[Rfam]
Nucleotides: 074
Stems, first nucleotide, its partner, number of pairs: 001073001003071005010026004028044004050066002053063002
Number, partner (000 for none) and nucleotide at each position: 001073g002000a003071c004070c005069u006068g007067u008000u009000a010026g011025c012024u013023c014000a015000g016000u017000u018000g019000g020000u021000u022000a023013g024012a025011g026010c027000g028044u029043g030042g031041u032000a033000c034000u035000g036000g037000u038000a039000a040000c041031a042030c043029c044028a045000a046000g047000g048000u049000u050066g051065c052000c053063g054062g055000u056000u057000c058000g059000a060000u061000c062054c063053c064000u065051g066050c067007a068006u069005g070004g071003g072000c073001c074000a
Background:
tRNA: a 74-nucleotide sequence from Hipposideros armiger. NCBI's taxonomy places the organism under Eukaryota, Bilateria, Dipnotetrapodomorpha, Laurasiatheria, Hipposideros. Gene Ontology term of the family: triplet codon-amino acid adaptor activity.